[Rfam]
RNA sequence: UUAAAGAUACUUCCGUCCAGUCGACAGGCCGAGCGUGAAGCGGCGUCAACCGUGAUCCGUCGCAGCCAACGAGGGCGGCUCUGUGAGAACCACAGGGUGGUGAGAUUCCAAUGA
Numbered sequence: 001u002u003a004a005a006g007a008u009a010c011u012u013c014c015g016u017c018c019a020g021u022c023g024a025c026a027g028g029c030c031g032a033g034c035g036u037g038a039a040g041c042g043g044c045g046u047c048a049a050c051c052g053u054g055a056u057c058c059g060u061c062g063c064a065g066c067c068a069a070c071g072a073g074g075g076c077g078g079c080u081c082u083g084u085g086a087g088a089a090c091c092a093c094a095g096g097g098u099g100g101u102g103a104g105a106u107u108c109c110a111a112u113g114a
Stems, first nucleotide, its partner, number of pairs: 012111001013078006079097003083093003098110003
About this RNA
This 114-nucleotide RNA belongs to the Rfam family "pemK RNA". It is annotated as a cis-regulatory element.